The family of this 54-nucleotide RNA sequence from Triplophysa rosa is "UnaL2 LINE 3' element". Pairs were carried over by alignment from the consensus structure, which is taken from published work. Taxonomically the source falls in Triplophysa (Eukaryota, Opisthokonta, Actinopteri, Otomorpha).
[Rfam]
RNA sequence: GUUUACCUCAUUUGUAAGUCGCUUUGGAUAAAAGCGUCUGCUAAAUGACAAAAC
Numbered sequence: 001g002u003u004u005a006c007c008u009c010a011u012u013u014g015u016a017a018g019u020c021g022c023u024u025u026g027g028a029u030a031a032a033a034g035c036g037u038c039u040g041c042u043a044a045a046u047g048a049c050a051a052a053a054c
Base pairs, nucleotide, nucleotide: 013043014041015040016039020036021035022034023033024032025031
A reference for the family is Baba et al. (2004), "Solution structure of an RNA stem-loop derived from the 3' conserved region of eel LINE UnaL2", RNA.
It scores 64 bits against the family's covariance model.